[Rfam]
RNA: Small nucleolar RNA SNORA47
Organism: Chaetops frenatus
RNA sequence: UGGAGGACUGAGAAGGUAAGACAGUUAAACUUUAUGCUGUAUCUUACUGGUUAUAGCCUCCAAAAUUAUAAUCGUGCAAUAGCAACUCGUGUUCCCCUCCUGACAUGAGGGAAAGCAGUACUGCAUUUG
Numbered sequence: 001u002g003g004a005g006g007a008c009u010g011a012g013a014a015g016g017u018a019a020g021a022c023a024g025u026u027a028a029a030c031u032u033u034a035u036g037c038u039g040u041a042u043c044u045u046a047c048u049g050g051u052u053a054u055a056g057c058c059u060c061c062a063a064a065a066u067u068a069u070a071a072u073c074g075u076g077c078a079a080u081a082g083c084a085a086c087u088c089g090u091g092u093u094c095c096c097c098u099c100c101u102g103a104c105a106u107g108a109g110g111g112a113a114a115g116c117a118g119u120a121c122u123g124c125a126u127u128u129g
Stems, first nucleotide, its partner, number of pairs: 002061005015048004019042001021040005083129001089124003097118002100115002104111001